[Rfam]
RNA: c-di-AMP riboswitch aptamer (ydaO/yuaA leader)
Organism: Arthrobacter sp. SRS-W-1-2016
RNA sequence: CAGGUGGAUUAGUCCAUUCACUGGCAGAAGCGGGGGAACCACCAUCGGCCGUCGAAAGACGGCCUUGGGGUGAAGUCCGCAGCAGAAGCACACAUUGCGCAGGGUCCUCCUCGGAGUAGCCCUGCGCUUCGCGUCCUUCGUGCGGACCGGGUCCACGAUCUCUCUGGCCCGAAUCCGACAGCUAACUUCGCAGGCUUGCCAGAGAGGAAAA
Numbered sequence: 001c002a003g004g005u006g007g008a009u010u011a012g013u014c015c016a017u018u019c020a021c022u023g024g025c026a027g028a029a030g031c032g033g034g035g036g037a038a039c040c041a042c043c044a045u046c047g048g049c050c051g052u053c054g055a056a057a058g059a060c061g062g063c064c065u066u067g068g069g070g071u072g073a074a075g076u077c078c079g080c081a082g083c084a085g086a087a088g089c090a091c092a093c094a095u096u097g098c099g100c101a102g103g104g105u106c107c108u109c110c111u112c113g114g115a116g117u118a119g120c121c122c123u124g125c126g127c128u129u130c131g132c133g134u135c136c137u138u139c140g141u142g143c144g145g146a147c148c149g150g151g152u153c154c155a156c157g158a159u160c161u162c163u164c165u166g167g168c169c170c171g172a173a174u175c176c177g178a179c180a181g182c183u184a185a186c187u188u189c190g191c192a193g194g195c196u197u198g199c200c201a202g203a204g205a206g207g208a209a210a211a
Stems, first nucleotide, its partner, number of pairs: 001027001030191006040067002068176003076146006149170004